FMN riboswitch aptamer (RFN element): a 125-nucleotide sequence from Corynebacterium argentoratense. A search with the family's covariance model found it, with a score of 95 bits.
RNA sequence: GUCGUGCACCGGGGUCAGUGAAAGUCUGAACCGGCGGUUACAGUCCGCGACCCUCCCCACCCGGGGAGGUUGAGCUGGUGGAAUUCCAGCACCGACGGUUAAAGUCCGGAUGGUAGGAGCACGAU
Numbered sequence: 001g002u003c004g005u006g007c008a009c010c011g012g013g014g015u016c017a018g019u020g021a022a023a024g025u026c027u028g029a030a031c032c033g034g035c036g037g038u039u040a041c042a043g044u045c046c047g048c049g050a051c052c053c054u055c056c057c058c059a060c061c062c063g064g065g066g067a068g069g070u071u072g073a074g075c076u077g078g079u080g081g082a083a084u085u086c087c088a089g090c091a092c093c094g095a096c097g098g099u100u101a102a103a104g105u106c107c108g109g110a111u112g113g114u115a116g117g118a119g120c121a122c123g124a125u
Stems, first nucleotide, its partner, number of pairs: 003123005009117002016028003030105002032094002034048004043092002052069002074090005096108003